[Rfam]
Nucleotides: 291
Stems, first nucleotide, its partner, number of pairs: 001028001003026004007021001011018002034071002037068001039066001041063003045059001046055002081249003086244001089240001095234003098230003102226002105115003117137005123132003138157002141154004160186001165182002168179002192223010203212003250282007258271003
Number, partner (000 for none) and nucleotide at each position: 001028u002000c003026u004025u005024g006023u007021g008000c009000u010000a011018u012017u013000g014000g015000c016000a017012a018011a019000a020000c021007c022000u023006a024005u025004g026003g027000u028001a029000a030000c031000u032000c033000u034071u035070u036000a037068g038000g039066u040000a041063u042062u043061c044000c045059u046055u047054c048000g049000a050000a051000c052000a053000a054047g055046a056000u057000g058000c059045a060000a061043g062042a063041a064000u065000a066039g067000a068037c069000a070035a071034a072000a073000a074000u075000g076000a077000c078000a079000g080000c081249c082248c083247u084000u085000c086244u087000a088000c089240g090000a091000g092000u093000g094000a095234u096233u097232a098230g099229c100228c101000u102226g103225g104000u105115c106114g107113u108000g109000a110000u111000u112000a113107g114106c115105g116000u117137g118136g119135u120134g121133g122000u123132g124131a125130u126000u127000a128000u129000u130125a131124u132123c133121c134120c135119a136118c137117c138157g139156u140000g141154c142153g143152g144151g145000g146000c147000u148000g149000c150000a151144c152143u153142u154141g155000g156139a157138c158000g159000a160186g161000g162000a163000a164000a165182g166181g167000c168179u169178u170000a171000g172000a173000a174000a175000u176000c177000a178169a179168g180000c181166c182165u183000u184000a185000a186160c187000g188000a189000a190000c191000u192223a193222a194221g195220a196219c197218c198217c199216c200215c201214g202000c203212a204211c205210c206000g207000a208000a209000a210205g211204g212203u213000c214201c215200g216199g217198g218197g219196g220195u221194u222193u223192u224000u225103u226102u227000u228100g229099g230098c231000c232097u233096g234095a235000a236000a237000a238000a239000c240089u241000u242000a243000a244086g245000c246000g247083a248082g249081g250282a251281g252280c253279a254278g255277a256276g257000c258271g259270u260269g261000a262000a263000u264000a265000a266000c267000a268000g269260c270259a271258u272000a273000a274000a275000a276256u277255u278254c279253u280252g281251u282250u283000u284000c285000u286000c287000a288000a289000g290000a291000u
Record summary: The record is a 291-nucleotide sequence from Salmonella enterica, which matches "Soft rot Enterobacteriaceae Rev 39 5'UTR" in Rfam. It scores 171 bits against the family's covariance model. The literature on the family includes a 2016 paper in BMC Genomics by Kwenda et al., "Discovery and profiling of small RNAs responsive to stress conditions in the plant pathogen Pectobacterium atrosepticum". By type it is a cis-regulatory element. From the family's description: From bacteria cultured under starvation conditions. Rfam links the family to the GO term cellular response to starvation.